RNA sequence: UAUUCGUUGGUUUAAAUCAAACCUGUUAUGAUUUAAGUUAGCGAGUCACCAUCAACCACAUUGUUUGCUGAGCAUGACUCCGAGCAGUGUGGUUUUUUA
Numbered sequence: 001u002a003u004u005c006g007u008u009g010g011u012u013u014a015a016a017u018c019a020a021a022c023c024u025g026u027u028a029u030g031a032u033u034u035a036a037g038u039u040a041g042c043g044a045g046u047c048a049c050c051a052u053c054a055a056c057c058a059c060a061u062u063g064u065u066u067g068c069u070g071a072g073c074a075u076g077a078c079u080c081c082g083a084g085c086a087g088u089g090u091g092g093u094u095u096u097u098u099a
Stems, first nucleotide, its partner, number of pairs: 002046018054094014070080003
Annotation:
Shown here is a 99-nucleotide sequence from Streptococcus pyogenes, a member of the family "23S methyl RNA motif". Rfam classes the family as a cis-regulatory element. Pairs were carried over by alignment from the consensus structure, which is taken from published work. The literature on the family includes a 2007 paper in Nucleic Acids Res by Weinberg et al., "Identification of 22 candidate structured RNAs in bacteria using the CMfinder comparative genomics pipeline". NCBI's taxonomy places the organism under Bacteria, Bacillota, Bacilli, Lactobacillales, Streptococcus pyogenes serotype M18. The sequence is in the family's curated seed alignment.